[Rfam]
RNA sequence: GUUUGUGUUCUUCCACAGCUUUCUUGAACUGCAUGGUUAUUAUUGGAGAGAUGCGAGGAAAAAUGAGAGGAGACCCAUCUUCUCCUUUUUCUUUGUCCUUGUCCUCUUCUUUUUGUGCGGUUCAAGAAAGCUGUGGGAAGAUACAGAUG
Numbered sequence: 001g002u003u004u005g006u007g008u009u010c011u012u013c014c015a016c017a018g019c020u021u022u023c024u025u026g027a028a029c030u031g032c033a034u035g036g037u038u039a040u041u042a043u044u045g046g047a048g049a050g051a052u053g054c055g056a057g058g059a060a061a062a063a064u065g066a067g068a069g070g071a072g073a074c075c076c077a078u079c080u081u082c083u084c085c086u087u088u089u090u091c092u093u094u095g096u097c098c099u100u101g102u103c104c105u106c107u108u109c110u111u112u113u114u115g116u117g118c119g120g121u122u123c124a125a126g127a128a129a130g131c132u133g134u135g136g137g138a139a140g141a142u143a144c145a146g147a148u149g
Stems, first nucleotide, its partner, number of pairs: 003146005013136003017132006024125004029120008
The record is a 149-nucleotide sequence from Eucalyptus grandis, which matches "MIR396 microRNA precursor family" in Rfam. The family has 26 seed sequences and 744 matches in Rfam 15.1. For this family Rfam cites "Computational identification of plant microRNAs and their targets, including a stress-induced miRNA" (Jones-Rhoades and Bartel, Mol Cell, 2004). Gene Ontology terms of the family: RISC complex and miRNA-mediated post-transcriptional gene silencing.